[Rfam]
RNA: Proteo-phage-1 RNA
RNA sequence: CCCUUGCCGGGAGGGAGCCGCAAGGCGCAGCCCGGACGUGGAUUGGUCGGUGAGUGCCACGCAUUGAAAAACCCCGACAGCC
Number, nucleotide and partner (000 for none) at each position: 001c015002c014003c013004u012005u000006g000007c035008c034009g033010g032011g031012a004013g003014g002015g001016a000017g026018c025019c024020g000021c000022a000023a000024g019025g018026c017027g000028c000029a000030g000031c011032c010033c009034g008035g007036a000037c061038g060039u059040g058041g057042a000043u000044u000045g000046g078047u077048c076049g075050g074051u000052g000053a000054g000055u000056g000057c041058c040059a039060c038061g037062c000063a000064u000065u000066g000067a000068a000069a000070a000071a000072c000073c000074c050075c049076g048077a047078c046079a000080g000081c000082c000